[Rfam]
RNA sequence: UAACUUUGAGGUUGGAAAUGGCACCCAAUACGCUACUUAGUAGUAACCAGAGAUACAGGAUACGCCGCCCUGUCAAGGUUG
Numbered sequence: 001u002a003a004c005u006u007u008g009a010g011g012u013u014g015g016a017a018a019u020g021g022c023a024c025c026c027a028a029u030a031c032g033c034u035a036c037u038u039a040g041u042a043g044u045a046a047c048c049a050g051a052g053a054u055a056c057a058g059g060a061u062a063c064g065c066c067g068c069c070c071u072g073u074c075a076a077g078g079u080u081g
Stems, first nucleotide, its partner, number of pairs: 001081008011029005019067004031050001032044004055073005
Dot-bracket structure: ((((((((..(((((...[[[[..))))).(((((.....)))).....)....(((((....]]]].)))))))))))))
RNA: skipping-rope RNA
Organism: Clostridium bornimense